[Rfam]
RNA sequence: AAUUAGCCCUGAUGGCAGCGGCAUCCUUUUUUAAUGUUGUCUUCGAGAACCUCAGACAACAUUAAAAAAAAUAUAGCGAACAGCAGGAAUGGCU
Numbered sequence: 001a002a003u004u005a006g007c008c009c010u011g012a013u014g015g016c017a018g019c020g021g022c023a024u025c026c027u028u029u030u031u032u033a034a035u036g037u038u039g040u041c042u043u044c045g046a047g048a049a050c051c052u053c054a055g056a057c058a059a060c061a062u063u064a065a066a067a068a069a070a071a072u073a074u075a076g077c078g079a080a081c082a083g084c085a086g087g088a089a090u091g092g093c094u
Base pairs, nucleotide, nucleotide: 009086010085011084013082014081018077019076023072024071029067030066031065032064033063034062035061036060037059038058039057040056041055042054
A member of the RNA family "Flavo-1 RNA" from Flavobacterium terrae, 94 nucleotides long. The family's RNA type in Rfam is small RNA. Taxonomically the source falls in Flavobacterium (Bacteria, Bacteroidota, Flavobacteriales, Flavobacteriaceae).